Notes: The record is a 109-nucleotide RNA sequence from Oxalobacteraceae bacterium IMCC9480, which matches "TPP riboswitch aptamer (THI element)" in Rfam. Vitamin B(1) in its active form thiamin pyrophosphate (TPP) is an essential coenzyme that is synthesised by coupling of pyrimidine and thiazole moieties in bacteria.
[Rfam]
RNA sequence: CCGCGCUGCUAGGGGUCCCGCACACCAUUGUUUGAUGGUCUGCAGGUGAGAUUCACCCUUCGAACCUGAUCUGGAUCAUGCCAGCGUAGGGAAGCGCAAAGUACUACGU
Numbered sequence: 001c002c003g004c005g006c007u008g009c010u011a012g013g014g015g016u017c018c019c020g021c022a023c024a025c026c027a028u029u030g031u032u033u034g035a036u037g038g039u040c041u042g043c044a045g046g047u048g049a050g051a052u053u054c055a056c057c058c059u060u061c062g063a064a065c066c067u068g069a070u071c072u073g074g075a076u077c078a079u080g081c082c083a084g085c086g087u088a089g090g091g092a093a094g095c096g097c098a099a100a101g102u103a104c105u106a107c108g109u
Base pairs, nucleotide, nucleotide: 007096008095009094010093011059012058013057014056017046018045020043021042065090066089067088068087071084072083073082074081